[Rfam]
RNA sequence: AAUAGGAGUGUGAGGAGACGGGGACGAGACGGAGCAUGGAAUGGACCAGUCAACAUCCAUUUUGGGUGGUGCUGCCCUUUCCAUGCACUGCCUCUUCCCUGGCUCCCCUCAUCCCUCUUUAU
Numbered sequence: 001a002a003u004a005g006g007a008g009u010g011u012g013a014g015g016a017g018a019c020g021g022g023g024a025c026g027a028g029a030c031g032g033a034g035c036a037u038g039g040a041a042u043g044g045a046c047c048a049g050u051c052a053a054c055a056u057c058c059a060u061u062u063u064g065g066g067u068g069g070u071g072c073u074g075c076c077c078u079u080u081c082c083a084u085g086c087a088c089u090g091c092c093u094c095u096u097c098c099c100u101g102g103c104u105c106c107c108c109u110c111a112u113c114c115c116u117c118u119u120u121a122u
Stems, first nucleotide, its partner, number of pairs: 015105003019101006027093002030090003034086006043077002

The record is a 122-nucleotide RNA sequence from Olea europaea, which matches "MIR408 microRNA precursor family" in Rfam. The literature on the family includes a 2004 paper in Plant Cell by Sunkar and Zhu, "Novel and stress-regulated microRNAs and other small RNAs from Arabidopsis". Pairs were carried over by alignment from the consensus structure, which was predicted with WAR.